[Rfam]
RNA sequence: CCUGCGGACCGGGCCCCUCUGGCGGCGGCUGCAAAGCCUCCGCGAUGUCGGACCGCAUCG
Numbered sequence: 001c002c003u004g005c006g007g008a009c010c011g012g013g014c015c016c017c018u019c020u021g022g023c024g025g026c027g028g029c030u031g032c033a034a035a036g037c038c039u040c041c042g043c044g045a046u047g048u049c050g051g052a053c054c055g056c057a058u059c060g
Stems, first nucleotide, its partner, number of pairs: 006054002009051004022043004027038003
RNA: terC RNA